[Rfam]
RNA sequence: GUCACAAGGUGGCGCGGCAUGUACUGCAGCGCCGAAAUGCGCAAUACCAAACGAAGACGGUAGAUAAG
Number, nucleotide and partner (000 for none) at each position: 001g000002u000003c000004a000005c000006a000007a000008g000009g000010u034011g033012g032013c031014g030015c029016g000017g027018c026019a025020u000021g000022u000023a000024c000025u019026g018027c017028a000029g015030c014031g013032c012033c011034g010035a000036a000037a000038u000039g000040c000041g000042c000043a000044a000045u000046a000047c000048c000049a000050a000051a000052c000053g000054a000055a000056g000057a000058c000059g000060g000061u000062a000063g000064a000065u000066a000067a000068g000